Shown here is a 140-nucleotide part of an RNA from Cladophialophora carrionii, a member of the family "Eukaryotic large subunit ribosomal RNA". It scores 3220 bits against the family's covariance model. The organism belongs to Cladophialophora, within Eukaryota. The family's consensus secondary structure is taken from published work.
RNA sequence: GAGUCUAACAUCUAUGCGAGUGUUUGGGUGUCAAACCCGGAACGCGAAAUGAAAGUGAACGGAGGUAGGAAGCUUCGGCUGCACUAUCGACCGAUCCUGAAGUUUACGGAUGGAUUUGAGUAAGAGCAUAGCUGUUGGGA
Numbered sequence: 001g002a003g004u005c006u007a008a009c010a011u012c013u014a015u016g017c018g019a020g021u022g023u024u025u026g027g028g029u030g031u032c033a034a035a036c037c038c039g040g041a042a043c044g045c046g047a048a049a050u051g052a053a054a055g056u057g058a059a060c061g062g063a064g065g066u067a068g069g070a071a072g073c074u075u076c077g078g079c080u081g082c083a084c085u086a087u088c089g090a091c092c093g094a095u096c097c098u099g100a101a102g103u104u105u106a107c108g109g110a111u112g113g114a115u116u117u118g119a120g121u122a123a124g125a126g127c128a129u130a131g132c133u134g135u136u137g138g139g140a
Stems, first nucleotide, its partner, number of pairs: 005138006012131006020045003025039005049056002064088005071080003090121002092118003095114003102107001